Shown here is a 37-nucleotide RNA, a member of the family "DUF805b RNA". Rfam classes the family as a cis-regulatory element. Its Rfam clan is "DUF805 clan".

RNA sequence: AGGGGAGAUGCCGAAAACCCGGGAAACAGAGUAGGCA
Numbered sequence: 001a002g003g004g005g006a007g008a009u010g011c012c013g014a015a016a017a018c019c020c021g022g023g024a025a026a027c028a029g030a031g032u033a034g035g036c037a
Stems, first nucleotide, its partner, number of pairs: 003020003010036003